Plant small nucleolar RNA U3: a 202-nucleotide sequence from Coptis chinensis. The family's consensus secondary structure is taken from published work. The family's RNA type in Rfam is C/D-box small nucleolar RNA. NCBI's taxonomy places the organism under Eukaryota, Viridiplantae, Mesangiospermae, Coptidoideae, Coptis. Rfam 15.1 lists 3,759 matches to the family in 258 species. Rfam's curators write: Small nucleolar RNAs (snoRNAs) are involved in the processing and modification of rRNA in the nucleolus. There are two main classes of snoRNAs: the box C/D class, and the box H/ACA class. Its family is annotated with RNA processing and nucleolus in the Gene Ontology.
[Rfam]
RNA sequence: ACUAUUCGUUUUACGUUUAUCAAAGUACCUCUGUUUCCUUGAGAAAUCAAGAGAUAGUGACCAAAGCUUGGUAGAUGAACCAGGACCGGGUGACCAGAGCGUGAUUAAUGGCUGGUGAUCCAGAUGGGUUCACUUCGCUGUAGAGGAUUGUUCUCAGUAGCCUUCGGGCUUUUGGGGUGGUUGUGCGGUUGUCUGACAAGCU
Numbered sequence: 001a002c003u004a005u006u007c008g009u010u011u012u013a014c015g016u017u018u019a020u021c022a023a024a025g026u027a028c029c030u031c032u033g034u035u036u037c038c039u040u041g042a043g044a045a046a047u048c049a050a051g052a053g054a055u056a057g058u059g060a061c062c063a064a065a066g067c068u069u070g071g072u073a074g075a076u077g078a079a080c081c082a083g084g085a086c087c088g089g090g091u092g093a094c095c096a097g098a099g100c101g102u103g104a105u106u107a108a109u110g111g112c113u114g115g116u117g118a119u120c121c122a123g124a125u126g127g128g129u130u131c132a133c134u135u136c137g138c139u140g141u142a143g144a145g146g147a148u149u150g151u152u153c154u155c156a157g158u159a160g161c162c163u164u165c166g167g168g169c170u171u172u173u174g175g176g177g178u179g180g181u182u183g184u185g186c187g188g189u190u191g192u193c194u195g196a197c198a199a200g201c202u
Stems, first nucleotide, its partner, number of pairs: 001026002003023001031057004036052002039049001041047001066201005085189004090184007098152004108141005114135001116132002118129004154175001156173002159170004